[Rfam]
RNA sequence: CGGAUGGGGGCCGGCGAUGCGCCCCGGUCGGAUGUGGAACGGUCACAAGCCGGUCCGCCGAUCGGCUCGGGGCGUUGACCGAUGCGGAUUGCGGCGGCGGCCAAAGCCCGGGCUGUUGAUAUGCCCGCGGAGACGCCGUCGACGCGAUCGUGGUAGGCAGCACGCGCCGUCUCGGCGUGCCUAGGCAUCUGCGUGCUCCUGGCAUCGGCCUGUGGGCUCCCCAUUCGGCCCGUCUUGAAACACGG
Number, nucleotide and partner (000 for none) at each position: 001c227002g226003g225004a224005u223006g222007g221008g220009g219010g218011c000012c000013g000014g217015c216016g000017a000018u000019g000020c000021g000022c000023c000024c000025c000026g000027g000028u000029c000030g000031g000032a000033u000034g000035u000036g000037g000038a000039a000040c000041g000042g000043u000044c000045a000046c000047a000048a000049g000050c000051c000052g000053g000054u000055c000056c000057g000058c000059c000060g000061a000062u000063c000064g000065g000066c000067u000068c000069g000070g000071g000072g000073c000074g000075u000076u000077g000078a000079c000080c000081g000082a000083u000084g000085c000086g000087g000088a000089u000090u000091g000092c000093g000094g000095c000096g000097g000098c000099g000100g000101c000102c000103a000104a000105a000106g000107c000108c000109c000110g000111g000112g000113c000114u000115g000116u000117u000118g000119a000120u000121a000122u000123g000124c000125c000126c000127g000128c000129g000130g000131a000132g000133a000134c000135g000136c000137c000138g000139u000140c000141g000142a000143c000144g000145c000146g000147a000148u000149c000150g000151u000152g000153g000154u000155a000156g000157g000158c000159a000160g000161c000162a000163c000164g000165c000166g000167c000168c000169g000170u000171c000172u000173c000174g000175g000176c000177g000178u000179g000180c000181c000182u000183a000184g000185g000186c000187a000188u000189c000190u000191g000192c000193g000194u000195g000196c000197u000198c000199c000200u000201g000202g000203c000204a000205u000206c000207g000208g000209c000210c000211u000212g000213u000214g000215g000216g015217c014218u010219c009220c008221c007222c006223a005224u004225u003226c002227g001228g000229c000230c245231c244232g243233u242234c000235u000236u000237g000238a000239a000240a000241c000242a233243c232244g231245g230
Shown here is a 245-nucleotide part of an RNA from Prunus yedoensis, a member of the family "Archaeal large subunit ribosomal RNA". The base pairs follow the family's consensus structure, which is taken from published work. The family is grouped with related families in Rfam's "LSU clan". A search with the family's covariance model found it, with a score of 1424 bits.